[Rfam]
Rfam assigns this 140-nucleotide sequence from Corythaeola cristata to the family "Small nucleolar RNA SNORA12". The family's consensus secondary structure was predicted with RNAalifold. Rfam links the family to the GO terms nucleolus and RNA processing. The family's RNA type in Rfam is H/ACA-box small nucleolar RNA. NCBI's taxonomy places the organism under Eukaryota, Chordata, Archosauria, Neoaves, Corythaeola.
RNA sequence: UAUUGUGGUGGUUUCUGUAUUUGGCGGAUCUGUAACUGUGUCAGAGCGGCCUUCAACUACCACAGAGAUCAGAAAGGAGAAGGCUGGGCUGAAAACUUUCAAGCUUUUAGUUUUCAGCCUUUUGUUCAGCUCCUACAAAA
Numbered sequence: 001u002a003u004u005g006u007g008g009u010g011g012u013u014u015c016u017g018u019a020u021u022u023g024g025c026g027g028a029u030c031u032g033u034a035a036c037u038g039u040g041u042c043a044g045a046g047c048g049g050c051c052u053u054c055a056a057c058u059a060c061c062a063c064a065g066a067g068a069u070c071a072g073a074a075a076g077g078a079g080a081a082g083g084c085u086g087g088g089c090u091g092a093a094a095a096c097u098u099u100c101a102a103g104c105u106u107u108u109a110g111u112u113u114u115c116a117g118c119c120u121u122u123u124g125u126u127c128a129g130c131u132c133c134u135a136c137a138a139a140a
Base pairs, nucleotide, nucleotide: 005063006062007061008060009059010058011057023051024050025049027047029045030044031043032042076133077132078131079130100124101123102122103121

Notes:
U108 belongs to the H/ACA family of snoRNAs. The sequence is predicted to guide the pseudouridylation of the U372 residue in the 28S rRNA subunit. However it has not been reported as a pseudouridylation site.